[Rfam]
The family of this 69-nucleotide RNA sequence from Panicum virgatum is "MIR531 microRNA precursor family".
RNA sequence: CCGAGCUCUGCUCGCCGGAGGUGCGUGCGGCCAUAGCCGGCGCGCAGCUCCGUCGAGCACCGCUCGUUG
Numbered sequence: 001c002c003g004a005g006c007u008c009u010g011c012u013c014g015c016c017g018g019a020g021g022u023g024c025g026u027g028c029g030g031c032c033a034u035a036g037c038c039g040g041c042g043c044g045c046a047g048c049u050c051c052g053u054c055g056a057g058c059a060c061c062g063c064u065c066g067u068u069g
Base pairs, nucleotide, nucleotide: 002066003065004064005063006062009059010058011057012056013055014054016052017051018050019049020048022046023045024044025043026042027041028040030037031036

Notes:
The family's consensus secondary structure was predicted with RNAalifold. Its family is annotated with miRNA-mediated post-transcriptional gene silencing and RISC complex in the Gene Ontology. A search with the family's covariance model found it, with a score of 72 bits.